A member of the RNA family "Lysine riboswitch aptamer" from Alkalicoccobacillus porphyridii, 180 nucleotides long.
RNA sequence: AGUGAGGAUAGAGGUGCAAAAACCAAAAGUAAUCCUGUAGAAGAGAAUGGGCUCUGUUGAAGCUGGAUGAAAGGGGCUUUUGCCGAAGCGUUUGAUUACUCAUGAUCAAGUGCUGGGCCUGUAUUUAAUAGAUGCAGGACUGUCAUAUAGUUUCAGACUAUAUGGGGGGCUAUCUUACAC
Numbered sequence: 001a002g003u004g005a006g007g008a009u010a011g012a013g014g015u016g017c018a019a020a021a022a023c024c025a026a027a028a029g030u031a032a033u034c035c036u037g038u039a040g041a042a043g044a045g046a047a048u049g050g051g052c053u054c055u056g057u058u059g060a061a062g063c064u065g066g067a068u069g070a071a072a073g074g075g076g077c078u079u080u081u082g083c084c085g086a087a088g089c090g091u092u093u094g095a096u097u098a099c100u101c102a103u104g105a106u107c108a109a110g111u112g113c114u115g116g117g118c119c120u121g122u123a124u125u126u127a128a129u130a131g132a133u134g135c136a137g138g139a140c141u142g143u144c145a146u147a148u149a150g151u152u153u154c155a156g157a158c159u160a161u162a163u164g165g166g167g168g169g170c171u172a173u174c175u176u177a178c179a180c
Stems, first nucleotide, its partner, number of pairs: 006175006016083006023076002032068004037063002087114012115141002118138008143165007
A reference for the family is Grundy et al. (2003), "The L box regulon: Lysine sensing by leader RNAs of bacterial lysine biosynthesis genes", Proc Natl Acad Sci U S A. The family's consensus secondary structure is taken from published work. A search with the family's covariance model found it, with a score of 133 bits.